[Rfam]
RNA sequence: UAAGCACAGGCAAUGGCACUGGAAGAAUUCACGGGUCCGAUUACGUAAUCCCGUGGUCUCUUAGUGGCAUCACUGGUGCUGG
Numbered sequence: 001u002a003a004g005c006a007c008a009g010g011c012a013a014u015g016g017c018a019c020u021g022g023a024a025g026a027a028u029u030c031a032c033g034g035g036u037c038c039g040a041u042u043a044c045g046u047a048a049u050c051c052c053g054u055g056g057u058c059u060c061u062u063a064g065u066g067g068c069a070u071c072a073c074u075g076g077u078g079c080u081g082g
Base pairs, nucleotide, nucleotide: 003080004079005078006077007076009074010073013070014069015068017066018065020063021062022061023059025058026057029056030055031054032053033052034051

Annotation
mir-263 microRNA precursor family: an 82-nucleotide RNA from Operophtera brumata. It scores 74 bits against the family's covariance model. Pairs were carried over by alignment from the consensus structure, which was predicted with RNAalifold. Gene Ontology terms of the family: miRNA-mediated post-transcriptional gene silencing and RISC complex. For this family Rfam cites "Direct sequencing and expression analysis of a large number of miRNAs in Aedes aegypti and a multi-species survey of novel mosquito miRNAs" (Li et al., BMC Genomics, 2009).